[Rfam]
RNA sequence: UGCCCGGCAACGCCGAAUCCACGGCCCGAAGCCGUGGACCGGGGGACCCAAGUCAUUGGGGCUAAUUCCACGGUUGAUCCGUGGGAGGCGCCGGCUCUUUCCGCGCCAGCCCGACAGCUAACCCCGGAGGCCGACGAAAGAGGAAGC
Numbered sequence: 001u002g003c004c005c006g007g008c009a010a011c012g013c014c015g016a017a018u019c020c021a022c023g024g025c026c027c028g029a030a031g032c033c034g035u036g037g038a039c040c041g042g043g044g045g046a047c048c049c050a051a052g053u054c055a056u057u058g059g060g061g062c063u064a065a066u067u068c069c070a071c072g073g074u075u076g077a078u079c080c081g082u083g084g085g086a087g088g089c090g091c092c093g094g095c096u097c098u099u100u101c102c103g104c105g106c107c108a109g110c111c112c113g114a115c116a117g118c119u120a121a122c123c124c125c126g127g128a129g130g131c132c133g134a135c136g137a138a139a140g141a142g143g144a145a146g147c
Stems, first nucleotide, its partner, number of pairs: 012131003018038008039127006049058002059112003067085004088106004